[Rfam]
RNA sequence: AGUGACACCAGGGGGAGCCGGCGCCACCGGCUGAGAGGCCUCCAUGGUUCGCCCGGGGCAAUGUCCGGGCGACGCGGGAGACGACCCCUUGAACCUGAUCCGGUUCGCACCGGCGUAGGGAUUGGUGAGGGAUCGUGAC
Numbered sequence: 001a002g003u004g005a006c007a008c009c010a011g012g013g014g015g016a017g018c019c020g021g022c023g024c025c026a027c028c029g030g031c032u033g034a035g036a037g038g039c040c041u042c043c044a045u046g047g048u049u050c051g052c053c054c055g056g057g058g059c060a061a062u063g064u065c066c067g068g069g070c071g072a073c074g075c076g077g078g079a080g081a082c083g084a085c086c087c088c089u090u091g092a093a094c095c096u097g098a099u100c101c102g103g104u105u106c107g108c109a110c111c112g113g114c115g116u117a118g119g120g121a122u123u124g125g126u127g128a129g130g131g132a133u134c135g136u137g138a139c
Stems, first nucleotide, its partner, number of pairs: 006127005011088004017031005038082001040080004094119004100113004
This 139-nucleotide RNA from Roseospira goensis belongs to the Rfam family "TPP riboswitch aptamer (THI element)". The organism belongs to Roseospira, within Bacteria. It scores 65 bits against the family's covariance model.